[Rfam]
RNA sequence: UAUACUAACAAGGGGGUCAUUGUAAAAGCGUGCUCGUCGCGACCCCUGCCAGCCCUUUUCAGGGCUGCAAUUCUACA
Numbered sequence: 001u002a003u004a005c006u007a008a009c010a011a012g013g014g015g016g017u018c019a020u021u022g023u024a025a026a027a028g029c030g031u032g033c034u035c036g037u038c039g040c041g042a043c044c045c046c047u048g049c050c051a052g053c054c055c056u057u058u059u060c061a062g063g064g065c066u067g068c069a070a071u072u073c074u075a076c077a
Stems, first nucleotide, its partner, number of pairs: 013046006021077004026072002028040003050067007
Shown here is a 77-nucleotide RNA from Parnassius apollo, a member of the family "Mammalian CPEB3 ribozyme". Gene Ontology term of the family: RNA nuclease activity.